[Rfam]
RNA sequence: GCCACAUGAUGUGAAAUAGAUUGCAUUAGCGCUACUGCAAAGAUGACCGUCUAUCUAUCACCCAAGACUGAUGGCU
Number, nucleotide and partner (000 for none) at each position: 001g075002c074003c073004a072005c000006a000007u000008g000009a000010u000011g000012u000013g000014a000015a000016a000017u000018a000019g000020a000021u000022u000023g000024c000025a000026u000027u000028a000029g038030c037031g036032c000033u000034a000035c000036u031037g030038c029039a000040a000041a000042g000043a000044u000045g000046a000047c000048c000049g000050u000051c000052u000053a000054u000055c000056u000057a000058u000059c000060a000061c000062c000063c000064a000065a000066g000067a000068c000069u000070g000071a000072u004073g003074g002075c001076u000

Overview
The record is a 76-nucleotide RNA sequence from Sinocyclocheilus anshuiensis, which matches "Small nucleolar RNA SNORD83" in Rfam. It is annotated as a C/D-box small nucleolar RNA. The source organism's lineage runs through Eukaryota, Neopterygii, Cypriniphysae, Cypriniformes and Sinocyclocheilus. A search with the family's covariance model found it, with a score of 46 bits.